[Rfam]
RNA sequence: GGAGUCGGCCAGACAGUCGCGUCACUCGCAAGAGUGCCGAGGAAAGUCCGGGCUCCAUAGGGCAAGGUGCCAGGUAACGCCUGGGCGGCGCAAGCCGACGGACAGUGCAACAGAAAGAUACCGCCUACGUUCCUUUCGGGGAGCCGGUAAGGGUGAAAUGGUGCGGUAAGAGCGCACCGCGAGUCCGGUAACGGACCGGCACGGCAAACCCCACCUGGAGCAAGACCAAAUAGGGAUCCAUUGGCGUGGCCCGCGCUGGAUCCGGGUAGGUUGCUUGAGCGCUGCGGUGACGUGGCGCCUAGACGAAUGACUGUCCACGACAGAACCCGGCUUAUCGGCCGGCUCCGCCG
Dot-bracket structure: ((((((((((((((((((.((.(((((....))))).))....[[[.[[[[[((((...[[[[.((((((((((.....)))))(((((....)))).)((...((((............(((((...((((((....)))))).)))..)).......((((((.......))))))(((.(((((....))))))).)...))..)))))))))))))...((((......((((((...(((((.]]]]))))))))))).....))))......((((((((....))))))))..........)))))))..........]]]]]]]].).))))))))))....
The record is a 350-nucleotide sequence from Xanthomonas oryzae, which matches "Bacterial RNase P class A" in Rfam. It is one of the family's seed sequences. The organism belongs to Xanthomonas oryzae pv. oryzae, within Bacteria.